Background
This 97-nucleotide sequence from Agromyces bauzanensis belongs to the Rfam family "mraW RNA". The family has 45 seed sequences and 851 matches in Rfam 15.1. The family's RNA type in Rfam is cis-regulatory element. It scores 58 bits against the family's covariance model.

[Rfam]
RNA sequence: UUCUAGCCCCGGGUUGCGACUCCCAGCCGUGCGCGCCUGAUGCACUUCCCCGCACCAGGACGAACGGAUGGGGAUCGGAACCCGGGAACGGGAGUCG
Numbered sequence: 001u002u003c004u005a006g007c008c009c010c011g012g013g014u015u016g017c018g019a020c021u022c023c024c025a026g027c028c029g030u031g032c033g034c035g036c037c038u039g040a041u042g043c044a045c046u047u048c049c050c051c052g053c054a055c056c057a058g059g060a061c062g063a064a065c066g067g068a069u070g071g072g073g074a075u076c077g078g079a080a081c082c083c084g085g086g087a088a089c090g091g092g093a094g095u096c097g
Stems, first nucleotide, its partner, number of pairs: 010084006018076002021073005027067004032062002036059004041054003